Eukaryotic small subunit ribosomal RNA: a 142-nucleotide part of an RNA from Psalteriomonas marylandensis.

RNA sequence: CCGCCCGUCGCUCCUACCAAUUGAAUAAAAAGAUAAAAUUGAUGGAAAAUGUUAAAGAUUUAAAAUUAAUUAAAUCUUUGUAUUUGUAGGAAGGAGAAGUCGUAACAAGGUUUUCGUAGGUGAACCUGCAGAAGGAUCAAGC
Numbered sequence: 001c002c003g004c005c006c007g008u009c010g011c012u013c014c015u016a017c018c019a020a021u022u023g024a025a026u027a028a029a030a031a032g033a034u035a036a037a038a039u040u041g042a043u044g045g046a047a048a049a050u051g052u053u054a055a056a057g058a059u060u061u062a063a064a065a066u067u068a069a070u071u072a073a074a075u076c077u078u079u080g081u082a083u084u085u086g087u088a089g090g091a092a093g094g095a096g097a098a099g100u101c102g103u104a105a106c107a108a109g110g111u112u113u114u115c116g117u118a119g120g121u122g123a124a125c126c127u128g129c130a131g132a133a134g135g136a137u138c139a140a141g142c
Stems, first nucleotide, its partner, number of pairs: 001109001003106001006102002009099001011096005017090002021086001023085005029079006037071007047061004111134004116129005